[Rfam]
Nucleotides: 081
Base pairs, nucleotide, nucleotide: 002080003079004078005077006076007075009072010071011070012069014068015067016066017065018064021061022060023059024058025057026056027055028054029053030052031051
Number, partner (000 for none) and nucleotide at each position: 001000u002080c003079a004078g005077g006076g007075g008000c009072u010071g011070a012069u013000u014068g015067u016066c017065c018064a019000a020000a021061c022060g023059c024058a025057a026056u027055u028054c029053u030052u031051g032000u033000a034000u035000c036000u037000u038000c039000a040000u041000g042000g043000u044000a045000a046000c047000u048000a049000a050000g051031c052030a053029g054028g055027a056026g057025u058024u059023g060022u061021g062000g063000a064018u065017g066016g067015a068014c069012a070011u071010c072009a073000a074000a075007c076006c077005u078004c079003u080002g081000g
A member of the RNA family "mir-219 microRNA precursor family" from Astyanax mexicanus, 81 nucleotides long. For this family Rfam cites "Computational identification of Drosophila microRNA genes" (Lai et al., Genome Biol, 2003). The base pairs follow the family's consensus structure, which was predicted with RNAalifold.